[Rfam]
RNA: Acido-Lenti-1 RNA
Organism: Phycisphaerae bacterium RAS1
RNA sequence: CCCCGCGCUUUCGCCCGGGGCUGUAUUCUUUCGCCCUUCCAGGGCU
Numbered sequence: 001c002c003c004c005g006c007g008c009u010u011u012c013g014c015c016c017g018g019g020g021c022u023g024u025a026u027u028c029u030u031u032c033g034c035c036c037u038u039c040c041a042g043g044g045c046u
Base pairs, nucleotide, nucleotide: 001020002019003018004017005016007014008013033045034044035043036042037041